[Rfam]
RNA sequence: CUGACGGAAUUUUCCGUUAGAAAUUUUCUGUCAGAAAUUUCUGACAGAAAUAUAAAUCUGUCAGAAAUUUCUGACGAAAAAUUCUGUCAGAAAUUUCCGACGGAAAAAUA
Numbered sequence: 001c002u003g004a005c006g007g008a009a010u011u012u013u014c015c016g017u018u019a020g021a022a023a024u025u026u027u028c029u030g031u032c033a034g035a036a037a038u039u040u041c042u043g044a045c046a047g048a049a050a051u052a053u054a055a056a057u058c059u060g061u062c063a064g065a066a067a068u069u070u071c072u073g074a075c076g077a078a079a080a081a082u083u084c085u086g087u088c089a090g091a092a093a094u095u096u097c098c099g100a101c102g103g104a105a106a107a108a109u110a
Stems, first nucleotide, its partner, number of pairs: 012105006020097006026066005070091004
RNA: rpsL sRNA